Y RNA-like: a 116-nucleotide sequence from Plasticicumulans acidivorans. Rfam 15.1 lists 124 matches to the family in 99 species. The match comes from Rfam's covariance-model search (73 bits). By type it is a small RNA. The organism belongs to Plasticicumulans, within Bacteria.
RNA sequence: CGGGUGAAUGCCCGUGGAACUACAUCGUGUCGCGGGUUCGAUUCCCGCCGCCACGCGCAGGCGCGGCGUAGCUCAGCGGGUAGAGCAGAUGUUCCACCCCUUUUCGUCACCCGCAC
Number, nucleotide and partner (000 for none) at each position: 001c000002g112003g111004g110005u109006g108007a107008a000009u000010g000011c000012c000013c000014g097015u096016g095017g094018a093019a092020c000021u000022a000023c000024a000025u089026c088027g000028u000029g000030u000031c000032g048033c047034g046035g045036g044037u000038u000039c080040g000041a000042u000043u000044c036045c035046c034047g033048c032049c068050g067051c066052c065053a000054c063055g062056c061057g000058c000059a000060g000061g056062c055063g054064c000065g052066g051067c050068g049069u000070a000071g086072c085073u084074c083075a000076g000077c000078g000079g000080g039081u000082a000083g074084a073085g072086c071087a000088g026089a025090u000091g000092u019093u018094c017095c016096a015097c014098c000099c000100c000101u000102u000103u000104u000105c000106g000107u007108c006109a005110c004111c003112c002113g000114c000115a000116c000
Rfam's curators write: In Deinococcus radiodurans Rsr is tethered via Y RNA to the exoribonuclease PNPase and channels single-stranded RNA into the PNPase cavity. Rsr and Y RNA enhance degradation of structured RNAs by PNPase. This role could be conserved, as Rsr and ncRNAs called YrlA and YrlB (Y RNA like) also associate with PNPase in an evolutionary distant bacterium Salmonella Typhimurium.